This 133-nucleotide RNA sequence belongs to the Rfam family "Small nucleolar RNA SNORA1". The family's RNA type in Rfam is H/ACA-box small nucleolar RNA. It is one of the family's seed sequences. ACA1 is a member of the H/ACA class of snoRNA that guide the sites of modification of uridines to pseudouridines.
RNA sequence: AGCCUCAUUGUACAUAAGAAUGGGCAUUGUUGGUCAUUGUCCAGAACUGGUCGAUGUGGCUAAAUUGAGAUACAGGUCAUGCUUCCAUCACAGCAGAUACAUUACAGUGGUGACAAUGAGACCUGUAACAUUU
Numbered sequence: 001a002g003c004c005u006c007a008u009u010g011u012a013c014a015u016a017a018g019a020a021u022g023g024g025c026a027u028u029g030u031u032g033g034u035c036a037u038u039g040u041c042c043a044g045a046a047c048u049g050g051u052c053g054a055u056g057u058g059g060c061u062a063a064a065u066u067g068a069g070a071u072a073c074a075g076g077u078c079a080u081g082c083u084u085c086c087a088u089c090a091c092a093g094c095a096g097a098u099a100c101a102u103u104a105c106a107g108u109g110g111u112g113a114c115a116a117u118g119a120g121a122c123c124u125g126u127a128a129c130a131u132u133u
Base pairs, nucleotide, nucleotide: 002060003059004058006056007055008054021043022042023041024040025039026038072126073125074124075123076122086112087111088110089109090108091107